[Rfam]
RNA: Ribosomal protein L13 leader
RNA sequence: GGUAUUGUUUGCCCCACGAUAAGCCCCGGAAACUUAACGUGUUCAAACAAGCACAGA
Numbered sequence: 001g002g003u004a005u006u007g008u009u010u011g012c013c014c015c016a017c018g019a020u021a022a023g024c025c026c027c028g029g030a031a032a033c034u035u036a037a038c039g040u041g042u043u044c045a046a047a048c049a050a051g052c053a054c055a056g057a
Base pairs, nucleotide, nucleotide: 006053007052008051009050010049011048015041016040017039018038020036021035022034023033